[Rfam]
RNA sequence: UCCUCGUUCGAAGAAUCGCAAUCAAAGCUUACAUACCGACAACCUUCUCAGAAUGGUCUGUCAUUGUACACACAGCUUUGGGAGAAAGUCCCCGGACGUCCAUCUUCACUGAAGAAUGGGUUACGCGGAAACGCGCCGCCAUAGAAGCACCACCAGCGGCCCAUCCCCCUUCACUUCAACCUCCCCCCCUCCCUACCCCUCUGCGGCACCGUUUGCACUCCUUCUUGGACACGCCAUCUGCUCGGAUCUUGCUGGCUUGGAAGACGUCCUUCACGGGAUGCCUGGCAACAGGGAGCGAGGAUAUGAGCUCUGCUUCCCCGUUCUUCGCAGGAUUUCGCUGCAGUGUGCGGGUUGAGUAGGAGGAGAUGACGCAGGUCUCGCGGUAGGAAGACAAGGUGGGCUCACAGGUUGUGGGGUUUGGGGUCUUUCGUCGCGGUUAACAGAUAUGCGAUUGCCAGGCUCCCCGUCUGCAGAUGGAUGGAGCGGGUAACUCAAUGGGGCUCAUUCUCGAGGCGAGG
Numbered sequence: 001u002c003c004u005c006g007u008u009c010g011a012a013g014a015a016u017c018g019c020a021a022u023c024a025a026a027g028c029u030u031a032c033a034u035a036c037c038g039a040c041a042a043c044c045u046u047c048u049c050a051g052a053a054u055g056g057u058c059u060g061u062c063a064u065u066g067u068a069c070a071c072a073c074a075g076c077u078u079u080g081g082g083a084g085a086a087a088g089u090c091c092c093c094g095g096a097c098g099u100c101c102a103u104c105u106u107c108a109c110u111g112a113a114g115a116a117u118g119g120g121u122u123a124c125g126c127g128g129a130a131a132c133g134c135g136c137c138g139c140c141a142u143a144g145a146a147g148c149a150c151c152a153c154c155a156g157c158g159g160c161c162c163a164u165c166c167c168c169c170u171u172c173a174c175u176u177c178a179a180c181c182u183c184c185c186c187c188c189c190u191c192c193c194u195a196c197c198c199c200u201c202u203g204c205g206g207c208a209c210c211g212u213u214u215g216c217a218c219u220c221c222u223u224c225u226u227g228g229a230c231a232c233g234c235c236a237u238c239u240g241c242u243c244g245g246a247u248c249u250u251g252c253u254g255g256c257u258u259g260g261a262a263g264a265c266g267u268c269c270u271u272c273a274c275g276g277g278a279u280g281c282c283u284g285g286c287a288a289c290a291g292g293g294a295g296c297g298a299g300g301a302u303a304u305g306a307g308c309u310c311u312g313c314u315u316c317c318c319c320g321u322u323c324u325u326c327g328c329a330g331g332a333u334u335u336c337g338c339u340g341c342a343g344u345g346u347g348c349g350g351g352u353u354g355a356g357u358a359g360g361a362g363g364a365g366a367u368g369a370c371g372c373a374g375g376u377c378u379c380g381c382g383g384u385a386g387g388a389a390g391a392c393a394a395g396g397u398g399g400g401c402u403c404a405c406a407g408g409u410u411g412u413g414g415g416g417u418u419u420g421g422g423g424u425c426u427u428u429c430g431u432c433g434c435g436g437u438u439a440a441c442a443g444a445u446a447u448g449c450g451a452u453u454g455c456c457a458g459g460c461u462c463c464c465c466g467u468c469u470g471c472a473g474a475u476g477g478a479u480g481g482a483g484c485g486g487g488u489a490a491c492u493c494a495a496u497g498g499g500g501c502u503c504a505u506u507c508u509c510g511a512g513g514c515g516a517g518g
Stems, first nucleotide, its partner, number of pairs: 002518006008511004014453006022082001023080006038062004044056001087502002090500004124135004263425003270415006281408004293403004455487002458484001460483004
This 518-nucleotide RNA sequence from Hortaea werneckii belongs to the Rfam family "RNase MRP". Its family is annotated with ribonuclease MRP complex, ribonuclease MRP activity and rRNA processing in the Gene Ontology. The family's RNA type in Rfam is ribozyme. The family is grouped with related families in Rfam's "RNaseP clan". Taxonomically the source falls in Hortaea (Eukaryota, Opisthokonta, leotiomyceta, Mycosphaerellales).